[Rfam]
RNA sequence: CUGAGUUCGCGGCUUGUUUUAAGUUGCCUGUGGAUGUUGAAUGGAGCACAGGCAGCUAAAGCAAGUCUGGAAAGCAG
Dot-bracket structure: ..(..(((..((((((((((.(((((((((.(..............).)))))))))))))))))))..)))..)..
A member of the RNA family "mir-1788 microRNA precursor family" from Leptobrachium leishanense, 77 nucleotides long. Its family is annotated with RISC complex and miRNA-mediated post-transcriptional gene silencing in the Gene Ontology. The family has 11 seed sequences and 504 matches in Rfam 15.1. A search with the family's covariance model found it, with a score of 70 bits. Lineage of the source: Eukaryota > Metazoa > Euteleostomi > Batrachia > Leptobrachium.